A member of the RNA family "Flavo-1 RNA" from Polaribacter porphyrae, 166 nucleotides long. Taxonomically the source falls in Polaribacter (Bacteria, Pseudomonadati, Flavobacteriia, Flavobacteriaceae). The base pairs follow the family's consensus structure, which is taken from published work.
RNA sequence: GUUUAGCCCAGAUUGAAACGACAUCCUUUUUUUGUUUUUUAGUUAGCUGUCAUUACGAAUGAGGAACGAAUGAAGUAAUCUCUUUCCUUUUUUGAGAUUGCUUCUUAAACUCGCAAUGAUAUUUCUAAAAGCAUAAAAAAAGAUAUAGUGGAAAGCUGGAAAUAGC
Numbered sequence: 001g002u003u004u005a006g007c008c009c010a011g012a013u014u015g016a017a018a019c020g021a022c023a024u025c026c027u028u029u030u031u032u033u034g035u036u037u038u039u040u041a042g043u044u045a046g047c048u049g050u051c052a053u054u055a056c057g058a059a060u061g062a063g064g065a066a067c068g069a070a071u072g073a074a075g076u077a078a079u080c081u082c083u084u085u086c087c088u089u090u091u092u093u094g095a096g097a098u099u100g101c102u103u104c105u106u107a108a109a110c111u112c113g114c115a116a117u118g119a120u121a122u123u124u125c126u127a128a129a130a131g132c133a134u135a136a137a138a139a140a141a142g143a144u145a146u147a148g149u150g151g152a153a154a155g156c157u158g159g160a161a162a163u164a165g166c
Stems, first nucleotide, its partner, number of pairs: 009158003013154002018149002023144003029139007
By type it is a small RNA.